A member of the RNA family "Glycine riboswitch aptamer" from Nitrosomonas aestuarii, 97 nucleotides long. Its family is annotated with glycine biosynthetic process in the Gene Ontology. Pairs were carried over by alignment from the consensus structure. It scores 63 bits against the family's covariance model.
RNA sequence: AACAGGCAAUCUGGAGAGUGUCAAGAUUUAACUUGACCACCGAAGGGGCACGCGGUUUUUCCGUAAAUCUCUCAGGUAAAAGGACAGAGGGGUGAAA
Numbered sequence: 001a002a003c004a005g006g007c008a009a010u011c012u013g014g015a016g017a018g019u020g021u022c023a024a025g026a027u028u029u030a031a032c033u034u035g036a037c038c039a040c041c042g043a044a045g046g047g048g049c050a051c052g053c054g055g056u057u058u059u060u061c062c063g064u065a066a067a068u069c070u071c072u073c074a075g076g077u078a079a080a081a082g083g084a085c086a087g088a089g090g091g092g093u094g095a096a097a
Stems, first nucleotide, its partner, number of pairs: 007091001010088004020037004039077003042073002046071003052064002